[Rfam]
RNA sequence: UAGUUGGUGAAAGUCCAACCAAAGGAGGGACCAAGCCACCUUUGUAGCUAGGAUGCUUGCGCAUGGCGAAAUCUGUGUGUAAAAGCGCAUCGACAAGAAGGUGGAUGGGUUCAUUCAUUAUCCGAGGUAAAGUAU
Numbered sequence: 001u002a003g004u005u006g007g008u009g010a011a012a013g014u015c016c017a018a019c020c021a022a023a024g025g026a027g028g029g030a031c032c033a034a035g036c037c038a039c040c041u042u043u044g045u046a047g048c049u050a051g052g053a054u055g056c057u058u059g060c061g062c063a064u065g066g067c068g069a070a071a072u073c074u075g076u077g078u079g080u081a082a083a084a085g086c087g088c089a090u091c092g093a094c095a096a097g098a099a100g101g102u103g104g105a106u107g108g109g110u111u112c113a114u115u116c117a118u119u120a121u122c123c124g125a126g127g128u129a130a131a132g133u134a135u
Stems, first nucleotide, its partner, number of pairs: 020044005052091005057082006066073001098115002101112001103110001
The record is a 135-nucleotide sequence from Paenibacillus sp. FSL R5-0912, which matches "Group II catalytic intron D1-D4-4" in Rfam. It scores 61 bits against the family's covariance model. Taxonomically the source falls in Paenibacillus (Bacteria, Bacillati, Bacilli, Paenibacillaceae). Group II introns are found in rRNA, tRNA and mRNA of organelles in fungi, plants and protists, and also in mRNA in bacteria. The base pairs follow the family's consensus structure. Rfam links the family to the GO term Group II intron splicing. The literature on the family includes a 2001 paper in Trends Genet by Bonen and Vogel, "The ins and outs of group II introns".